[Rfam]
RNA: Enterococcus sRNA 1300
RNA sequence: ACAUAGCAUGCGUAUUCGAUAAGCAUUGAAAUCAAAAAAGAUUUUUCCCAUUUUCAAUAUGGGCUUUUUUGUCAUGCUUAUUUUGCGUAUGCUAUACAACAAAACUAACGACGUAUAGACAUAGUAUAAAAACUAUGCCUUAAUUUUGUUGUAGUAUUAUAUGUAUAAAUGCAGGUCAAUGCUCAUGUUGAGAAUUGACCUGCAUUUUUUUG
Numbered sequence: 001a002c003a004u005a006g007c008a009u010g011c012g013u014a015u016u017c018g019a020u021a022a023g024c025a026u027u028g029a030a031a032u033c034a035a036a037a038a039a040g041a042u043u044u045u046u047c048c049c050a051u052u053u054u055c056a057a058u059a060u061g062g063g064c065u066u067u068u069u070u071g072u073c074a075u076g077c078u079u080a081u082u083u084u085g086c087g088u089a090u091g092c093u094a095u096a097c098a099a100c101a102a103a104a105c106u107a108a109c110g111a112c113g114u115a116u117a118g119a120c121a122u123a124g125u126a127u128a129a130a131a132a133c134u135a136u137g138c139c140u141u142a143a144u145u146u147u148g149u150u151g152u153a154g155u156a157u158u159a160u161a162u163g164u165a166u167a168a169a170u171g172c173a174g175g176u177c178a179a180u181g182c183u184c185a186u187g188u189u190g191a192g193a194a195u196u197g198a199c200c201u202g203c204a205u206u207u208u209u210u211u212g
Base pairs, nucleotide, nucleotide: 004094005093006092007091008090009089010088011087012086013085018082019081020080021079022078023077024076028075031072032071034069035068036067037066038065040064047062049061050060051059095156096155097154099152100151101150104149105148107146108144114142115141117140118139120137123134124133125132169205170204171203172202173201174200176198177197178196179195180194182192183191184190185189